RNA sequence: AUACGUCUUCAGGGCAGGGUGUAAUUCCCGACCGGUGGUAAAGUCCACGAACUCGAGUCAUCGAGCUGAUCUGGUGAAACUCCAGUACCGACAGUAAAGUCUGGAUGGAAGAAGAUUAAA
Numbered sequence: 001a002u003a004c005g006u007c008u009u010c011a012g013g014g015c016a017g018g019g020u021g022u023a024a025u026u027c028c029c030g031a032c033c034g035g036u037g038g039u040a041a042a043g044u045c046c047a048c049g050a051a052c053u054c055g056a057g058u059c060a061u062c063g064a065g066c067u068g069a070u071c072u073g074g075u076g077a078a079a080c081u082c083c084a085g086u087a088c089c090g091a092c093a094g095u096a097a098a099g100u101c102u103g104g105a106u107g108g109a110a111g112a113a114g115a116u117u118a119a120a
Base pairs, nucleotide, nucleotide: 005116006115007114008113009112010111017029018028019027031100032099033090034089035048036047037046038045043088044087052065053064071085072084073083074082092103093102094101
RNA: FMN riboswitch aptamer (RFN element)
Organism: Ruoffia halotolerans